[Rfam]
RNA sequence: UGGACCAAUGACAAGGGUGUGUUUAUGAACAAAGAAUCGUGAUUAAUUCAGUUCGGCACCAAAUCCUGUGGUCCAUU
Numbered sequence: 001u002g003g004a005c006c007a008a009u010g011a012c013a014a015g016g017g018u019g020u021g022u023u024u025a026u027g028a029a030c031a032a033a034g035a036a037u038c039g040u041g042a043u044u045a046a047u048u049c050a051g052u053u054c055g056g057c058a059c060c061a062a063a064u065c066c067u068g069u070g071g072u073c074c075a076u077u
Stems, first nucleotide, its partner, number of pairs: 001075006
The family of this 77-nucleotide RNA from Loxodonta africana is "Small nucleolar RNA SNORD112". NCBI's taxonomy places the organism under Eukaryota, Opisthokonta, Deuterostomia, Gnathostomata, Loxodonta. The match comes from Rfam's covariance-model search (82 bits). It is annotated as a C/D-box small nucleolar RNA. Its family is annotated with RNA processing and nucleolus in the Gene Ontology. A reference for the family is Cavaille et al. (2002), "Identification of tandemly-repeated C/D snoRNA genes at the imprinted human 14q32 domain reminiscent of those at the Prader-Willi/Angelman syndrome region", Hum Mol Genet.